[Rfam]
RNA sequence: AUGUGUUUGUGUGUGGAUGGUGUUCAGCACCAAGGACGUGUGCUUGUGUGUGGAUGGUGUUCAGCACCAAGGACAGACGUGUUCGGCU
Number, nucleotide and partner (000 for none) at each position: 001a000002u000003g000004u079005g078006u077007u076008u075009g074010u073011g000012u000013g000014u000015g000016g000017a000018u069019g068020g067021u066022g065023u064024u063025c000026a061027g060028c059029a058030c057031c056032a055033a000034g049035g000036a047037c046038g045039u000040g000041u000042g000043c000044u000045u038046g037047u036048g000049u034050g000051u000052g000053g000054a000055u032056g031057g030058u029059g028060u027061u026062c000063a024064g023065c022066a021067c020068c019069a018070a000071g000072g000073a010074c009075a008076g007077a006078c005079g004080u000081g000082u000083u000084c000085g000086g000087c000088u000
RNA: mir-2060 microRNA precursor family
Organism: Branchiostoma floridae